[Rfam]
RNA sequence: ACAGCCUGAGCGCUGAGUUCUUUUUAGAAACGGGGGACCCAUUUUUUGUGAGAUUAACACUUGGGGUGAAUCCUUUUUUGAGGUAGGGUUACUCUUAUGACCCGAAUCCGACAGCUAACUCCGUAAGCGUGGUGAGAGAAGGU
Numbered sequence: 001a002c003a004g005c006c007u008g009a010g011c012g013c014u015g016a017g018u019u020c021u022u023u024u025u026a027g028a029a030a031c032g033g034g035g036g037a038c039c040c041a042u043u044u045u046u047u048g049u050g051a052g053a054u055u056a057a058c059a060c061u062u063g064g065g066g067u068g069a070a071u072c073c074u075u076u077u078u079u080g081a082g083g084u085a086g087g088g089u090u091a092c093u094c095u096u097a098u099g100a101c102c103c104g105a106a107u108c109c110g111a112c113a114g115c116u117a118a119c120u121c122c123g124u125a126a127g128c129g130u131g132g133u134g135a136g137a138g139a140a141g142g143u
Stems, first nucleotide, its partner, number of pairs: 011129004018029003030124006040063002064109003072083004086103004
Annotation
This 143-nucleotide RNA sequence from Priestia koreensis belongs to the Rfam family "c-di-AMP riboswitch aptamer (ydaO/yuaA leader)". The base pairs follow the family's consensus structure. Taxonomically the source falls in Priestia (Bacteria, Bacillati, Bacillota, Bacilli).